[Rfam]
RNA sequence: AUGUUAUCAAGAAAGGUGGAGGGAAUAGACCCUAUGAUACCUUAGCAACCCUUUAUCUUUUAAAGAAGGUGCUACAUUCUAUUCGUAUUAUAACGAAAUAGAUAACAA
Numbered sequence: 001a002u003g004u005u006a007u008c009a010a011g012a013a014a015g016g017u018g019g020a021g022g023g024a025a026u027a028g029a030c031c032c033u034a035u036g037a038u039a040c041c042u043u044a045g046c047a048a049c050c051c052u053u054u055a056u057c058u059u060u061u062a063a064a065g066a067a068g069g070u071g072c073u074a075c076a077u078u079c080u081a082u083u084c085g086u087a088u089u090a091u092a093a094c095g096a097a098a099u100a101g102a103u104a105a106c107a108a
Base pairs, nucleotide, nucleotide: 002107003106004105005104006103007102008101013043014042015041016040017039021032022031023030026081027080028079029078044073045072046071047070049069050068051065052064053063054062077100082097083096084095085094086093

A member of the RNA family "SAM riboswitch aptamer (S box leader)" from Aquimarina amphilecti, 108 nucleotides long.
The base pairs follow the family's consensus structure, which is taken from published work.
The match comes from Rfam's covariance-model search (89 bits).